[Rfam]
RNA sequence: GAGUCCGGCGCGCCCACUUGGCGCCCGGAGCCGGGGACCCACCGAUCCUGGGGUGAAUCGGCCGACUCCCGCCCGGGACGACGCCGUAGGGCAACCCUUCCGAACCACCGCCCGAACCCGACAGCUAACCCGGUAGGCGGAGCAUUGGAAGGAGUC
Numbered sequence: 001g002a003g004u005c006c007g008g009c010g011c012g013c014c015c016a017c018u019u020g021g022c023g024c025c026c027g028g029a030g031c032c033g034g035g036g037a038c039c040c041a042c043c044g045a046u047c048c049u050g051g052g053g054u055g056a057a058u059c060g061g062c063c064g065a066c067u068c069c070c071g072c073c074c075g076g077g078a079c080g081a082c083g084c085c086g087u088a089g090g091g092c093a094a095c096c097c098u099u100c101c102g103a104a105c106c107a108c109c110g111c112c113c114g115a116a117c118c119c120g121a122c123a124g125c126u127a128a129c130c131c132g133g134u135a136g137g138c139g140g141a142g143c144a145u146u147g148g149a150a151g152g153a154g155u156c
Stems, first nucleotide, its partner, number of pairs: 004029005030134006040050002051119003059086004089113004
RNA: c-di-AMP riboswitch aptamer (ydaO/yuaA leader)